RNA sequence: CAAGCUAUUGGGUCGCCUGUAGCUUG
Numbered sequence: 001c002a003a004g005c006u007a008u009u010g011g012g013u014c015g016c017c018u019g020u021a022g023c024u025u026g
Stems, first nucleotide, its partner, number of pairs: 001026008010017002
Shown here is a 26-nucleotide sequence from Gallibacterium anatis, a member of the family "L25-Gammaproteobacteria ribosomal protein leader". The family's consensus secondary structure is taken from published work. The literature on the family includes a 2020 paper in BMC Microbiol by Eckert and Weinberg, "Discovery of 20 novel ribosomal leader candidates in bacteria and archaea".